Record summary: Shown here is a 67-nucleotide sequence from Monodelphis domestica, a member of the family "Small nucleolar RNA SNORD42". The base pairs follow the family's consensus structure, which was predicted with PFOLD. The family's RNA type in Rfam is C/D-box small nucleolar RNA. The literature on the family includes a 2002 paper in Mol Cell Biol by Galardi et al., "Purified box C/D snoRNPs are able to reproduce site-specific 2'-O-methylation of target RNA in vitro". From the family's description: snoRNA U42 is found in intron 3 of the ribosomal protein L23a (RPL23a) gene in humans and is also present in mice.
RNA sequence: AUGCCAAUGAUGGAAACAUGUAUUUUCCUGAGAAUACUGAUGUUGUCAAAGGAACCACUGAUGGCAU
Dot-bracket structure: (((((.........................................................)))))
Numbered sequence: 001a002u003g004c005c006a007a008u009g010a011u012g013g014a015a016a017c018a019u020g021u022a023u024u025u026u027c028c029u030g031a032g033a034a035u036a037c038u039g040a041u042g043u044u045g046u047c048a049a050a051g052g053a054a055c056c057a058c059u060g061a062u063g064g065c066a067u
Stems, first nucleotide, its partner, number of pairs: 001067005